[Rfam]
Background:
A member of the RNA family "Antisense RNA which regulates isiA expression" from Pleurocapsales cyanobacterium LEGE 06147, 178 nucleotides long. Lineage of the source: Bacteria > Bacillati > Cyanobacteriota > Cyanophyceae > Pleurocapsales. The family has 308 seed sequences and 3,397 matches in Rfam 15.1. The literature on the family includes a 2006 paper in Proc Natl Acad Sci U S A by Duhring et al., "An internal antisense RNA regulates expression of the photosynthesis gene isiA". The base pairs follow the family's consensus structure, which was predicted with PFOLD.

RNA sequence: GAUAGCCAAAAAUAGUUAGAGGAUUGAGAGUAGGGUCAGUAACUACGCGCACGUCUUGAAUAGUUGCAUCGUAUAAACCACCCCAGAACAUAGCUUUAGCAACCAAAAGUAGUGCCCCAGCACCGAGAAAUAGUAAAUGAUGACCCAGAAUCAAGCCCAGUUGAGCGGGGUCGUCCCA
Dot-bracket structure: ........................................................................................................................................(((((..(((....................))))))))....
The match comes from Rfam's covariance-model search (119 bits).